[Rfam]
Nucleotides: 070
Stems, first nucleotide, its partner, number of pairs: 007064002011060004016055003020051004026040004
Number, partner (000 for none) and nucleotide at each position: 001000u002000u003000a004000c005000c006000a007064g008063u009000c010000a011060g012059g013058c014057u015000g016055u017054g018053g019000c020051u021050a022049u023048a024000c025000u026040c027039c028038a029037g030000g031000a032000c033000a034000c035000a036000g037029u038028u039027g040026g041000u042000c043000c044000u045000g046000g047000g048023u049022a050021u051020a052000a053018c054017c055016a056000a057014a058013g059012c060011u061000c062000a063008a064007c065000u066000c067000u068000a069000u070000a
mir-344 microRNA precursor family: a 70-nucleotide sequence from Peromyscus maniculatus.
For this family Rfam cites "Mammalian microRNAs: experimental evaluation of novel and previously annotated genes" (Chiang et al., Genes Dev, 2010).
Rfam 15.1 lists 339 matches to the family in 9 species.